[Rfam]
Nucleotides: 052
Stems, first nucleotide, its partner, number of pairs: 001052006011042005
Number, partner (000 for none) and nucleotide at each position: 001052a002051u003050u004049a005048a006047u007000a008000a009000u010000c011042g012041a013040g014039a015038u016000g017000c018000u019000u020000a021000u022000u023000u024000c025000a026000g027000u028000g029000a030000a031000c032000a033000u034000u035000a036000a037000g038015a039014u040013c041012u042011c043000a044000a045000a046000a047006a048005u049004u050003a051002a052001u

The family of this 52-nucleotide RNA from Pterocles burchelli is "S16-Flavobacteria ribosomal protein leader". Rfam classes the family as a cis-regulatory leader. Lineage of the source: Eukaryota > Sauropsida > Archelosauria > Dinosauria > Pterocles.